[Rfam]
About this RNA: Rfam assigns this 204-nucleotide sequence from Streptomyces glaucescens to the family "Streptomyces RNA 1601". Pairs were carried over by alignment from the consensus structure. NCBI's taxonomy places the organism under Bacteria, Bacillati, Actinomycetes, Kitasatosporales, Streptomyces. By type it is a small RNA. On this family, see Vockenhuber et al., RNA Biol 2011: "Deep sequencing-based identification of small non-coding RNAs in Streptomyces coelicolor". Rfam's curators put it in the seed alignment. Identified by deep sequencing of transcriptome at the end of exponential growth phase. Appears longer on northern blot than sequencing transcript.
RNA sequence: GACGACCGGCCGGACACCGCCGUGUGCCCGGCCCACAAGUGGAGGCUUCGAACUCCCACCUGACCGCCCCCUGGGGCGGCGGGUCACCGGUCAGACGGUCCCGUCCCGAGGCGGCGAUCCGUCCGAAUGCGCGCCCCGCGAUGAUUCGCGGCGGUGCUCCGGUAGUUCGAGGAGCCCCGCCUGUGAUCGUCCGGGGCAUUUUUU
Numbered sequence: 001g002a003c004g005a006c007c008g009g010c011c012g013g014a015c016a017c018c019g020c021c022g023u024g025u026g027c028c029c030g031g032c033c034c035a036c037a038a039g040u041g042g043a044g045g046c047u048u049c050g051a052a053c054u055c056c057c058a059c060c061u062g063a064c065c066g067c068c069c070c071c072u073g074g075g076g077c078g079g080c081g082g083g084u085c086a087c088c089g090g091u092c093a094g095a096c097g098g099u100c101c102c103g104u105c106c107c108g109a110g111g112c113g114g115c116g117a118u119c120c121g122u123c124c125g126a127a128u129g130c131g132c133g134c135c136c137c138g139c140g141a142u143g144a145u146u147c148g149c150g151g152c153g154g155u156g157c158u159c160c161g162g163u164a165g166u167u168c169g170a171g172g173a174g175c176c177c178c179g180c181c182u183g184u185g186a187u188c189g190u191c192c193g194g195g196g197c198a199u200u201u202u203u204u
Base pairs, nucleotide, nucleotide: 004092005091006090007089008088009087012029013028030085031084032083033082034081036062037061039059040058041057042056043054044053064079065078066077067076068075069074094123095122096121097120098119101114102113103112104111105110133197134196135195136194137193138192139189140188141187146185148184149183150181151180152179153178154177156175157174158173159172160171